[Rfam]
RNA sequence: CAUCGUGUUGGGCAAACCCGUGUGAAAACCGGGGACGCUAAGCCAUGGGUCUAAAGCUGGUAUAUAUGCCAUGAUUGCCAGGCGACAAGG
Numbered sequence: 001c002a003u004c005g006u007g008u009u010g011g012g013c014a015a016a017c018c019c020g021u022g023u024g025a026a027a028a029c030c031g032g033g034g035a036c037g038c039u040a041a042g043c044c045a046u047g048g049g050u051c052u053a054a055a056g057c058u059g060g061u062a063u064a065u066a067u068g069c070c071a072u073g074a075u076u077g078c079c080a081g082g083c084g085a086c087a088a089g090g
Stems, first nucleotide, its partner, number of pairs: 012038002017033004022029002042083003046080003049075003056069002
RNA: c-di-GMP-I riboswitch aptamer
Organism: Pelotomaculum isophthalicicum